[Rfam]
RNA sequence: GGCAGCCCCGUGCCGGGCCUGCCCUUCCCACCCGGUACCUGAUACGGCCGGAGUGG
Numbered sequence: 001g002g003c004a005g006c007c008c009c010g011u012g013c014c015g016g017g018c019c020u021g022c023c024c025u026u027c028c029c030a031c032c033c034g035g036u037a038c039c040u041g042a043u044a045c046g047g048c049c050g051g052a053g054u055g056g
Stems, first nucleotide, its partner, number of pairs: 001023004005018004028056003032051005
Shown here is a 56-nucleotide RNA from Allostigmatella aurantiaca, a member of the family "L17-Actino-Proteobacteria ribosomal protein leader". By type it is a cis-regulatory leader. The match comes from Rfam's covariance-model search (46 bits). The organism belongs to Allostigmatella, within Bacteria.